[Rfam]
RNA sequence: UUGCCCCAGUGAACAUUCAACGCUGUCGGUGAGUUUGAGCUAAAUUGAAAGAAAAAAAACCAUCGACCGUUGACUGUACCCUGUGGCUAG
Numbered sequence: 001u002u003g004c005c006c007c008a009g010u011g012a013a014c015a016u017u018c019a020a021c022g023c024u025g026u027c028g029g030u031g032a033g034u035u036u037g038a039g040c041u042a043a044a045u046u047g048a049a050a051g052a053a054a055a056a057a058a059a060c061c062a063u064c065g066a067c068c069g070u071u072g073a074c075u076g077u078a079c080c081c082u083g084u085g086g087c088u089a090g
Stems, first nucleotide, its partner, number of pairs: 001090003004086002007083002014076002017073006025067007033060004
RNA: mir-181 microRNA precursor family
Organism: Oreochromis niloticus